[Rfam]
RNA: Fungal signal recognition particle RNA
Organism: Blastomyces gilchristii
RNA sequence: UGGCUGUCGUGGUCGAAUGGAGAUCUCCCGCAUCGGCUCUGUGUCUGUGGAUUGGGUAACAAAACCCCCAACCAGCGGAACCGGGAACGGUUGCAAGGUGCCUGGUUCGAAUCGCCGGGUCGCGAGAAUUUAUUAAUUAGAUUCUUCUCCCACACUCGUGCGAGUAAUCCACGACUUGGCUGUUGGCGCGCUAAGCAAUGGCCCGCAUCCUCGAGGGAAGCAAUUCUGCAGAGAACGGGCUCCCCGGCGAUGGCGGCACCAGAUCACACCGCCGCUGCACAGGCACGGACUCGAAUGGGAUGGUCGACUUUCUUUUUUU
Numbered sequence: 001u002g003g004c005u006g007u008c009g010u011g012g013u014c015g016a017a018u019g020g021a022g023a024u025c026u027c028c029c030g031c032a033u034c035g036g037c038u039c040u041g042u043g044u045c046u047g048u049g050g051a052u053u054g055g056g057u058a059a060c061a062a063a064a065c066c067c068c069c070a071a072c073c074a075g076c077g078g079a080a081c082c083g084g085g086a087a088c089g090g091u092u093g094c095a096a097g098g099u100g101c102c103u104g105g106u107u108c109g110a111a112u113c114g115c116c117g118g119g120u121c122g123c124g125a126g127a128a129u130u131u132a133u134u135a136a137u138u139a140g141a142u143u144c145u146u147c148u149c150c151c152a153c154a155c156u157c158g159u160g161c162g163a164g165u166a167a168u169c170c171a172c173g174a175c176u177u178g179g180c181u182g183u184u185g186g187c188g189c190g191c192u193a194a195g196c197a198a199u200g201g202c203c204c205g206c207a208u209c210c211u212c213g214a215g216g217g218a219a220g221c222a223a224u225u226c227u228g229c230a231g232a233g234a235a236c237g238g239g240c241u242c243c244c245c246g247g248c249g250a251u252g253g254c255g256g257c258a259c260c261a262g263a264u265c266a267c268a269c270c271g272c273c274g275c276u277g278c279a280c281a282g283g284c285a286c287g288g289a290c291u292c293g294a295a296u297g298g299g300a301u302g303g304u305c306g307a308c309u310u311u312c313u314u315u316u317u318u319u
Stems, first nucleotide, its partner, number of pairs: 001015004016316002019313004023304003028299001031297003034293003038289011055066003089276001093273001097270004102262005107256003111251009147188001149186002151182002154176001156174005162169002191195001200241006210233003217226003